[Rfam]
Source information
The family of this 71-nucleotide RNA from Dysosmobacter segnis is "S10-Clostridia ribosomal protein leader". The organism belongs to Dysosmobacter, within Bacteria. The literature on the family includes a 2020 paper in BMC Microbiol by Eckert and Weinberg, "Discovery of 20 novel ribosomal leader candidates in bacteria and archaea".
RNA sequence: ACAUUGCGAUGAACCGGGAGAUUGCUCCGCAAGGAGGUAACUUCCGGGGAGUAUGUCCGAUAAUCGGGCGG
Number, nucleotide and partner (000 for none) at each position: 001a000002c000003a000004u000005u000006g000007c000008g000009a000010u000011g000012a000013a000014c047015c046016g045017g000018g044019a043020g042021a000022u000023u000024g000025c036026u035027c034028c033029g000030c000031a000032a000033g028034g027035a026036g025037g000038u000039a000040a000041c000042u020043u019044c018045c016046g015047g014048g000049g000050a000051g000052u000053a000054u070055g069056u068057c067058c066059g065060a000061u000062a000063a000064u000065c059066g058067g057068g056069c055070g054071g000